[Rfam]
RNA sequence: UAUUCUCAUUCAUAUGUUAAUGGGGUAGGAUCCGAGACUUUCCGGGUCACACAGGCUCUCCUACCCAACUCCUAUUCCGUCACGUCCUCGUCGUACAGAGCGGUAACUUUCCCCACCACAUAUCCAAGCUUUGGUACACGGACCUGUCCCAACCCCUUUGGCGGAUGGUGGAGCAAGGCUAAACAGGAGGGG
Numbered sequence: 001u002a003u004u005c006u007c008a009u010u011c012a013u014a015u016g017u018u019a020a021u022g023g024g025g026u027a028g029g030a031u032c033c034g035a036g037a038c039u040u041u042c043c044g045g046g047u048c049a050c051a052c053a054g055g056c057u058c059u060c061c062u063a064c065c066c067a068a069c070u071c072c073u074a075u076u077c078c079g080u081c082a083c084g085u086c087c088u089c090g091u092c093g094u095a096c097a098g099a100g101c102g103g104u105a106a107c108u109u110u111c112c113c114c115a116c117c118a119c120a121u122a123u124c125c126a127a128g129c130u131u132u133g134g135u136a137c138a139c140g141g142a143c144c145u146g147u148c149c150c151a152a153c154c155c156c157u158u159u160g161g162c163g164g165a166u167g168g169u170g171g172a173g174c175a176a177g178g179c180u181a182a183a184c185a186g187g188a189g190g191g192g
Base pairs, nucleotide, nucleotide: 013099015097016096017095023066024065025064026063027062028061029060030059032055033054070192071191072190073189075188076187078186082094083093084092086103087102107177108176109175111173114170115169116168117167122166123165124164125163130152131151133149134148154161155160
Shown here is a 192-nucleotide RNA sequence from Anopheles stephensi, a member of the family "drz-agam-2-2 ribozyme".
The match comes from Rfam's covariance-model search (128 bits).
The family's consensus secondary structure is taken from published work.
NCBI's taxonomy places the organism under Eukaryota, Altocrustacea, Culicidae, Anopheles, Neocellia.
Rfam links the family to the GO term catalytic activity.